A member of the RNA family "MIR397 microRNA precursor family" from Medicago truncatula, 116 nucleotides long. Lineage of the source: Eukaryota > Magnoliopsida > Gunneridae > fabids > Medicago. The family's consensus secondary structure was predicted with WAR. Rfam links the family to the GO terms RISC complex and miRNA-mediated post-transcriptional gene silencing. A reference for the family is Mica et al. (2009), "High throughput approaches reveal splicing of primary microRNA transcripts and tissue specific expression of mature microRNAs in Vitis vinifera", BMC Genomics.
RNA sequence: UGGAGAAACAUCAUUGAGUGCAGCGUUGAUGAAAUCUUAUGUAGCAUCUAGCUAUCUUAUAGAUAUCAAAUAUUGCAUGCUUAAUUUCAUCUACGCUACACUCAAUUAUGUUUUUU
Numbered sequence: 001u002g003g004a005g006a007a008a009c010a011u012c013a014u015u016g017a018g019u020g021c022a023g024c025g026u027u028g029a030u031g032a033a034a035u036c037u038u039a040u041g042u043a044g045c046a047u048c049u050a051g052c053u054a055u056c057u058u059a060u061a062g063a064u065a066u067c068a069a070a071u072a073u074u075g076c077a078u079g080c081u082u083a084a085u086u087u088c089a090u091c092u093a094c095g096c097u098a099c100a101c102u103c104a105a106u107u108a109u110g111u112u113u114u115u116u
Base pairs, nucleotide, nucleotide: 006113007112008111009110010109011108013106014105015104016103017102018101019100020099022097023096024095025094026093028091030089031088032087